Histone 3' UTR stem-loop: a 46-nucleotide sequence from Magallana gigas. About the family: The mRNAs of metazoan histone genes lack a poly-A tail. 3' end processing occurs at a site between a highly conserved stem-loop (modelled by this family) and a purine rich region around 20 nts downstream (the histone downstream element, or HDE). NCBI's taxonomy places the organism under Eukaryota, Mollusca, Bivalvia, Ostreidae, Magallana. It scores 36 bits against the family's covariance model.
RNA sequence: AAAACGGCCGUUUUCACGGCCACCUAAACUUUUAGAAAAGAUGCCU
Numbered sequence: 001a002a003a004a005c006g007g008c009c010g011u012u013u014u015c016a017c018g019g020c021c022a023c024c025u026a027a028a029c030u031u032u033u034a035g036a037a038a039a040g041a042u043g044c045c046u
Stems, first nucleotide, its partner, number of pairs: 006021006